Shown here is a 73-nucleotide sequence from Pelotomaculum isophthalicicum, a member of the family "tRNA".
RNA sequence: GGGCCAUUAGCUCAGACGGUAGAGCACCUGACUUUUAAUCAGGGUGUCGGUGGUUCGAGUCCACCAUGGCUCA
Dot-bracket structure: (((((((..((((........)))).(((((.......))))).....(((((.......)))))))))))).